Background
This 127-nucleotide RNA sequence from Aquilegia coerulea belongs to the Rfam family "U11 spliceosomal RNA". It scores 74 bits against the family's covariance model.
[Rfam]
RNA sequence: UAAAAGGGUCGGUUGGCUAAAUAUGCCACGCUCGCCCUCGAUGGUGAGUGCUGUAUGGCUAUCAAGACAUAUGGCCGACACAAUUUGUGGCAACGUGUAGGGUUGGCUCGCUUGGCCGAUCCUCUCU
Numbered sequence: 001u002a003a004a005a006g007g008g009u010c011g012g013u014u015g016g017c018u019a020a021a022u023a024u025g026c027c028a029c030g031c032u033c034g035c036c037c038u039c040g041a042u043g044g045u046g047a048g049u050g051c052u053g054u055a056u057g058g059c060u061a062u063c064a065a066g067a068c069a070u071a072u073g074g075c076c077g078a079c080a081c082a083a084u085u086u087g088u089g090g091c092a093a094c095g096u097g098u099a100g101g102g103u104u105g106g107c108u109c110g111c112u113u114g115g116c117c118g119a120u121c122c123u124c125u126c127u
Base pairs, nucleotide, nucleotide: 008079009078010077011076012075014028015027016026017025029050030049031048032047033046034045035044036043051074052073053072054071055070056069057068097125099123100122101121102120103119104118105117106116107115108114